[Rfam]
RNA: mir-122 microRNA precursor family
Organism: Tupaia belangeri
RNA sequence: UGGAGUGUGACAAUGGUGUUUGUGUCCAAGCUAUCAAACGCCAUUAUCACACUAAAU
Numbered sequence: 001u002g003g004a005g006u007g008u009g010a011c012a013a014u015g016g017u018g019u020u021u022g023u024g025u026c027c028a029a030g031c032u033a034u035c036a037a038a039c040g041c042c043a044u045u046a047u048c049a050c051a052c053u054a055a056a057u
Stems, first nucleotide, its partner, number of pairs: 004053007012045011